[Rfam]
Overview:
Shown here is a 121-nucleotide RNA sequence from Mus musculus, a member of the family "Small nucleolar RNA SNORA33". Pairs were carried over by alignment from the consensus structure, which was predicted with PFOLD. Rfam describes the family as follows. ACA33 is a member of the H/ACA class of snoRNA that guide the sites of modification of uridines to pseudouridines.
RNA sequence: CAGCCAGUUAACUUAUCUUUUACGGUGUUUCUGUAGAAAUUGUGAAAAGCUGGCAAUAGUCAUGCCAUACUACAAGCCCUGAGGACAACAGUCAUUAUGGUUCCUGAAAAUGGCUACAUUA
Numbered sequence: 001c002a003g004c005c006a007g008u009u010a011a012c013u014u015a016u017c018u019u020u021u022a023c024g025g026u027g028u029u030u031c032u033g034u035a036g037a038a039a040u041u042g043u044g045a046a047a048a049g050c051u052g053g054c055a056a057u058a059g060u061c062a063u064g065c066c067a068u069a070c071u072a073c074a075a076g077c078c079c080u081g082a083g084g085a086c087a088a089c090a091g092u093c094a095u096u097a098u099g100g101u102u103c104c105u106g107a108a109a110a111u112g113g114c115u116a117c118a119u120u121a
Stems, first nucleotide, its partner, number of pairs: 003054005016037003064114004076101003080097003084093003
Dot-bracket structure: ..(((((........(((................)))............))))).........((((........(((.(((.(((....))).))).))).........)))).......
Its family is annotated with nucleolus and RNA processing in the Gene Ontology.
Lineage of the source: Eukaryota > Teleostomi > Muroidea > Murinae > Mus.